[Rfam]
Flavo-1 RNA: a 79-nucleotide RNA sequence from Flavobacterium cyanobacteriorum. It scores 51 bits against the family's covariance model. By type it is a small RNA.

RNA sequence: GCCCAGCCCCGAUAGAAGCGGCAUCCUCCCUGCCGCCCGCUUUCGCGGCAGGGAGAUAGAGCUGAAAGCGGGACGGAAG
Numbered sequence: 001g002c003c004c005a006g007c008c009c010c011g012a013u014a015g016a017a018g019c020g021g022c023a024u025c026c027u028c029c030c031u032g033c034c035g036c037c038c039g040c041u042u043u044c045g046c047g048g049c050a051g052g053g054a055g056a057u058a059g060a061g062c063u064g065a066a067a068g069c070g071g072g073a074c075g076g077a078a079g
Stems, first nucleotide, its partner, number of pairs: 009071003013067001018062002023057003028053008